[Rfam]
The family of this 208-nucleotide RNA sequence from Mitsuokella sp. oral taxon 131 is "c-di-AMP riboswitch aptamer (ydaO/yuaA leader)".
The organism belongs to Mitsuokella sp. oral taxon 131, within Bacteria.
RNA sequence: GUUUGCAGCAAGCCGAGUCCAGCCCAGGAGCGGGGGAACCAAUGUCUCGCAAGGCGCUGAUCCAGGUUUUGGACAGAACCUUGCGGUAUGGGGUGAACGCAUGCCACUGCGGUGUCAGGCAGGAUUGCCUUCAUGGCAGUGCAUGCGAGGGUGGCUUUCUUCAUCCUAACCCGGCAGCUAACCUCGUAGGCGAAUAAAGAGAGGAGUG
Numbered sequence: 001g002u003u004u005g006c007a008g009c010a011a012g013c014c015g016a017g018u019c020c021a022g023c024c025c026a027g028g029a030g031c032g033g034g035g036g037a038a039c040c041a042a043u044g045u046c047u048c049g050c051a052a053g054g055c056g057c058u059g060a061u062c063c064a065g066g067u068u069u070u071g072g073a074c075a076g077a078a079c080c081u082u083g084c085g086g087u088a089u090g091g092g093g094u095g096a097a098c099g100c101a102u103g104c105c106a107c108u109g110c111g112g113u114g115u116c117a118g119g120c121a122g123g124a125u126u127g128c129c130u131u132c133a134u135g136g137c138a139g140u141g142c143a144u145g146c147g148a149g150g151g152u153g154g155c156u157u158u159c160u161u162c163a164u165c166c167u168a169a170c171c172c173g174g175c176a177g178c179u180a181a182c183c184u185c186g187u188a189g190g191c192g193a194a195u196a197a198a199g200a201g202a203g204g205a206g207u208g
Stems, first nucleotide, its partner, number of pairs: 012191003018029003030187006040090002091172003099146006149166004